The record is a 73-nucleotide RNA, which matches "Pistol ribozyme" in Rfam. Rfam links the family to the GO term catalytic activity. For this family Rfam cites "Crucial Roles of Two Hydrated Mg(2+) Ions in Reaction Catalysis of the Pistol Ribozyme" (Teplova et al., Angew Chem Int Ed Engl, 2020).

RNA sequence: ACUGGUUGCGGCCAGUAUAAAUAGUCUUUAAGCCGCAAGCGUGUCCUGGAGUUAAUCUUCCAGGGCGGUAGCA
Number, nucleotide and partner (000 for none) at each position: 001a016002c015003u014004g013005g000006u038007u037008g036009c035010g034011g033012c000013c004014a003015g002016u001017a000018u000019a000020a000021a000022u000023a000024g000025u000026c071027u070028u000029u000030a000031a000032g040033c011034c010035g009036c008037a007038a006039g000040c032041g000042u067043g066044u065045c064046c063047u062048g061049g060050a059051g058052u000053u000054a000055a000056u000057c000058u051059u050060c049061c048062a047063g046064g045065g044066c043067g042068g000069u000070a027071g026072c000073a000